[Rfam]
RNA: mir-1343 microRNA precursor family
Organism: Galemys pyrenaicus
RNA sequence: CUGGCGUCGGUGUUGGGGAGCGGGCCCCGGAGUGGGCAUCCACUCCUGCCCCUCCUGGGGCCCGCUCUCUCGCUCCGGGCCCG
Dot-bracket structure: ..(((.((((.((.((((.((((.((((((.(.(((((........)))))..))))))).)))).)))).)).)))))))..